[Rfam]
RNA sequence: UAAAUAGCACAGGGGUGUUGGAUGAUAGCCAACUGAGAGUAAGAACUAAAUUUCUUUAACCCUAGUACCUGAACUGGAUAAUGCCAGCGUAGGAAGUGUUUUGUUUAAUAGU
Dot-bracket structure: .....(((((((((..(((((.......))))).......((((........))))...))))....((((..((((......))))..))))..)))))............
Numbered sequence: 001u002a003a004a005u006a007g008c009a010c011a012g013g014g015g016u017g018u019u020g021g022a023u024g025a026u027a028g029c030c031a032a033c034u035g036a037g038a039g040u041a042a043g044a045a046c047u048a049a050a051u052u053u054c055u056u057u058a059a060c061c062c063u064a065g066u067a068c069c070u071g072a073a074c075u076g077g078a079u080a081a082u083g084c085c086a087g088c089g090u091a092g093g094a095a096g097u098g099u100u101u102u103g104u105u106u107a108a109u110a111g112u
Stems, first nucleotide, its partner, number of pairs: 006100005011063004017033005041056004068093004074087004
The record is a 112-nucleotide sequence from Clostridium intestinale, which matches "TPP riboswitch aptamer (THI element)" in Rfam. Rfam's curators write: Vitamin B(1) in its active form thiamin pyrophosphate (TPP) is an essential coenzyme that is synthesised by coupling of pyrimidine and thiazole moieties in bacteria. A search with the family's covariance model found it, with a score of 67 bits. Lineage of the source: Bacteria > Bacillati > Bacillota > Eubacteriales > Clostridium intestinale.